[Rfam]
Rfam assigns this 74-nucleotide RNA from Roseisalinus antarcticus to the family "L2-Alphaproteobacteria ribosomal protein leader".
The organism belongs to Roseisalinus, within Bacteria.
Nucleotides: 074
Stems, first nucleotide, its partner, number of pairs: 001018004006014003029051002032048001034046005
Number, partner (000 for none) and nucleotide at each position: 001018g002017g003016g004015g005000a006014c007013c008012u009000u010000c011000g012008g013007g014006g015004c016003c017002c018001u019000u020000g021000g022000a023000a024000c025000u026000g027000c028000c029051g030050g031000u032048c033000u034046g035045g036044c037043c038042a039000c040000g041000a042038u043037g044036g045035c046034c047000c048032g049000u050030c051029c052000g053000c054000a055000a056000a057000g058000c059000a060000a061000c062000g063000g064000a065000a066000a067000g068000a069000c070000a071000g072000u073000a074000a